[Rfam]
Nucleotides: 095
Stems, first nucleotide, its partner, number of pairs: 001095006008088007017079001019077001021075004029067001
Number, partner (000 for none) and nucleotide at each position: 001095a002094u003093a004092u005091g006090c007000u008088u009087g010086g011085c012084u013083c014082c015000u016000c017079g018000c019077a020000c021075g022074c023073c024072a025000u026000a027000c028000a029067c030000g031000a032000a033000g034000a035000c036000c037000a038000u039000c040000a041000a042000u043000u044000a045000a046000a047000c048000a049000u050000u051000u052000c053000u054000u055000u056000c057000a058000a059000u060000g061000g062000a063000c064000u065000c066000u067029g068000c069000a070000a071000a072024u073023g074022g075021c076000a077019u078000a079017c080000a081000g082014g083013g084012a085011g086010c087009c088008a089000g090006g091005c092004a093003u094002a095001u

Shown here is a 95-nucleotide RNA sequence from Papaver somniferum, a member of the family "mir-160 microRNA precursor family". The match comes from Rfam's covariance-model search (48 bits). Pairs were carried over by alignment from the consensus structure, which was predicted with PFOLD. Taxonomically the source falls in Papaver (Eukaryota, Viridiplantae, Euphyllophyta, Mesangiospermae). The literature on the family includes a 2002 paper in Cell by Rhoades et al., "Prediction of plant microRNA targets".